[Rfam]
RNA sequence: ACACGAAAGAUAAUCGCUGCAUUUAAUGUGUAGAGGAAAGUCCAUGCUCGCACCACCUGUGAUGGUGGUAGUGUUUGUGUUCGACAAAAAAAUAAGUCGAAGCAUAGAGGCAUCUAUGACGGCAGACCAAAUCCCUAAGGGAAACUAUGGGAGGCGGCUUGAAAGUGCCACAGUGACGAAGUCCCUUUCGAAAGACUGGGAGUGGAACGAGGUAAACCCCAUAAGCGAGAAACCCAAAUUUGGUAGGGGAACUGGCACUAUCGAAUCAAAGAGAUGUGCCGGACGUCUAUGACGUAGAUAAAUGAUUAUCGCAACAGAACAUGGCUUAUUG
Number, nucleotide and partner (000 for none) at each position: 001a000002c000003a000004c000005g000006a000007a000008a329009g310010a309011u308012a307013a306014u305015c304016g000017c033018u032019g031020c030021a029022u028023u000024u000025a000026a000027u000028g022029u021030g020031u019032a018033g017034a000035g000036g000037a000038a327039a326040g325041u000042c324043c323044a322045u321046g320047c229048u228049c227050g226051c225052a069053c068054c067055a066056c065057c064058u000059g000060u000061g000062a000063u000064g057065g056066u055067g054068g053069u052070a000071g000072u000073g000074u000075u224076u223077g222078u221079g220080u101081u100082c099083g098084a097085c096086a000087a000088a000089a000090a000091a000092a000093u000094a000095a000096g085097u084098c083099g082100a081101a080102g120103c118104a117105u116106a115107g114108a113109g000110g000111c000112a000113u108114c107115u106116a105117u104118g103119a000120c102121g219122g218123c000124a159125g158126a000127c156128c000129a000130a000131a000132u152133c151134c150135c149136u000137a000138a000139g146140g145141g000142a000143a000144a000145c140146u139147a000148u000149g135150g134151g133152a132153g000154g000155c000156g127157g000158c125159u124160u000161g000162a000163a000164a000165g217166u216167g213168c212169c211170a000171c000172a000173g000174u000175g000176a000177c000178g000179a000180a000181g000182u201183c200184c199185c198186u000187u000188u195189c194190g000191a000192a000193a000194g189195a188196c000197u000198g185199g184200g183201a182202g000203u000204g000205g000206a000207a000208c000209g000210a000211g169212g168213u167214a000215a000216a166217c165218c122219c121220c079221a078222u077223a076224a075225g051226c050227g049228a048229g047230a000231a000232a000233c248234c247235c246236a000237a000238a000239u000240u000241u000242g000243g000244u000245a000246g235247g234248g233249g000250a000251a000252c282253u281254g280255g279256c278257a277258c276259u000260a000261u000262c000263g000264a000265a000266u000267c000268a000269a000270a000271g000272a000273g000274a000275u000276g258277u257278g256279c255280c254281g253282g252283a295284c294285g293286u292287c291288u000289a000290u000291g287292a286293c285294g284295u283296a000297g000298a000299u000300a000301a000302a000303u000304g015305a014306u013307u012308a011309u010310c009311g000312c000313a000314a000315c000316a000317g000318a000319a000320c046321a045322u044323g043324g042325c040326u039327u038328a000329u008330u000331g000
RNA: Bacterial RNase P class B
Organism: Erysipelothrix sp. HDW6C